[Rfam]
RNA sequence: UACUCUCCGUGUUCACUGUGUAUGUCUUGAUGUUUCCUUUGAUUAUCAUAAGGCACGCGGUGAAUGCCAAGAGUU
Dot-bracket structure: ..((((..((((((((.(((....(((((..(.............)..)))))..))).))))))))..))))..
Numbered sequence: 001u002a003c004u005c006u007c008c009g010u011g012u013u014c015a016c017u018g019u020g021u022a023u024g025u026c027u028u029g030a031u032g033u034u035u036c037c038u039u040u041g042a043u044u045a046u047c048a049u050a051a052g053g054c055a056c057g058c059g060g061u062g063a064a065u066g067c068c069a070a071g072a073g074u075u
Stems, first nucleotide, its partner, number of pairs: 003073004009067008018058003025053005032046001
This 75-nucleotide RNA sequence from Tetranychus urticae belongs to the Rfam family "mir-124 microRNA precursor family". A search with the family's covariance model found it, with a score of 57 bits. Lineage of the source: Eukaryota > Acari > Prostigmata > Tetranychidae > Tetranychus. For this family Rfam cites "Computational identification of Drosophila microRNA genes" (Lai et al., Genome Biol, 2003).